The family of this 75-nucleotide RNA sequence from Phytohabitans suffuscus is "ASpks TB sRNA".
The source organism's lineage runs through Bacteria, Bacillati, Micromonosporales, Micromonosporaceae and Phytohabitans.
A reference for the family is Arnvig and Young (2009), "Identification of small RNAs in Mycobacterium tuberculosis", Mol Microbiol.
[Rfam]
RNA sequence: CUUGACCGAGCCCAGCCAGACGGGCCGCUGCGCCGGGCGGUCCUGGCCGUACGUGGCCAGCAGCGCCUGCGCCUC
Numbered sequence: 001c002u003u004g005a006c007c008g009a010g011c012c013c014a015g016c017c018a019g020a021c022g023g024g025c026c027g028c029u030g031c032g033c034c035g036g037g038c039g040g041u042c043c044u045g046g047c048c049g050u051a052c053g054u055g056g057c058c059a060g061c062a063g064c065g066c067c068u069g070c071g072c073c074u075c
Stems, first nucleotide, its partner, number of pairs: 015025003031071003038065002043060003047056003
Rfam classes the family as an antisense RNA.